This 80-nucleotide sequence from Caenorhabditis remanei belongs to the Rfam family "mir-232 microRNA precursor family".

RNA sequence: UGUCGGAUCUCCGUAGUUUCGAUCAUUUUAUCCUAUCUCCAACAAAGCGAUAAAUGCAUCUUAACUGCGGUGAUCUGAAU
Numbered sequence: 001u002g003u004c005g006g007a008u009c010u011c012c013g014u015a016g017u018u019u020c021g022a023u024c025a026u027u028u029u030a031u032c033c034u035a036u037c038u039c040c041a042a043c044a045a046a047g048c049g050a051u052a053a054a055u056g057c058a059u060c061u062u063a064a065c066u067g068c069g070g071u072g073a074u075c076u077g078a079a080u
Base pairs, nucleotide, nucleotide: 003078004077005076006075007074008073009072011070012069013068014067015066016065017064018063021060022059023058027054028053029052030051031050032049033047034046
Its family is annotated with miRNA-mediated post-transcriptional gene silencing and RISC complex in the Gene Ontology. For this family Rfam cites "Repertoire and evolution of miRNA genes in four divergent nematode species" (de Wit et al., Genome Res, 2009).